[Rfam]
RNA sequence: GUUGAAGCUCCAUCUACAAAUGGAUAAGACUUUGGUCUUAGUGUAAGUGUAUACGAGUUUUUGAUUUGAAAAGAAAGGAGCAAUAACCGAUUAAUAUAACAAGAAAUUGCUUAUUGCUCCUUU
Numbered sequence: 001g002u003u004g005a006a007g008c009u010c011c012a013u014c015u016a017c018a019a020a021u022g023g024a025u026a027a028g029a030c031u032u033u034g035g036u037c038u039u040a041g042u043g044u045a046a047g048u049g050u051a052u053a054c055g056a057g058u059u060u061u062u063g064a065u066u067u068g069a070a071a072a073g074a075a076a077g078g079a080g081c082a083a084u085a086a087c088c089g090a091u092u093a094a095u096a097u098a099a100c101a102a103g104a105a106a107u108u109g110c111u112u113a114u115u116g117c118u119c120c121u122u123u
Base pairs, nucleotide, nucleotide: 009024010023011022012021013020074123075122076121077120078119079118080117081116082115083114084113085112086111088109089108090107092101
A member of the RNA family "Plastid-psbA-1 3UTR RNA", 123 nucleotides long. For this family Rfam cites "Retrograde signaling in plants: A critical review focusing on the GUN pathway and beyond" (Richter et al., Plant Commun, 2023). The base pairs follow the family's consensus structure, which was predicted with LocARNA. Its Rfam clan is "Plastid-psbA 3UTR RNA clan". By type it is a cis-regulatory element. It is one of the family's seed sequences.